[Rfam]
RNA sequence: CCCUCUGCGUGUUCACAGCGGACCUUGAUUUAGUGUCUACACAAUUAAGGCACGCGGUGAAUGCCAAGAGAG
Numbered sequence: 001c002c003c004u005c006u007g008c009g010u011g012u013u014c015a016c017a018g019c020g021g022a023c024c025u026u027g028a029u030u031u032a033g034u035g036u037c038u039a040c041a042c043a044a045u046u047a048a049g050g051c052a053c054g055c056g057g058u059g060a061a062u063g064c065c066a067a068g069a070g071a072g
Stems, first nucleotide, its partner, number of pairs: 003070004009064008018055003023050008

Rfam assigns this 72-nucleotide RNA from Camelus dromedarius to the family "mir-124 microRNA precursor family". The literature on the family includes a 2002 paper in Curr Biol by Lagos-Quintana et al., "Identification of tissue-specific microRNAs from mouse". The family's consensus secondary structure was predicted with PFOLD. The organism belongs to Camelus, within Eukaryota. Its family is annotated with RISC complex and miRNA-mediated post-transcriptional gene silencing in the Gene Ontology.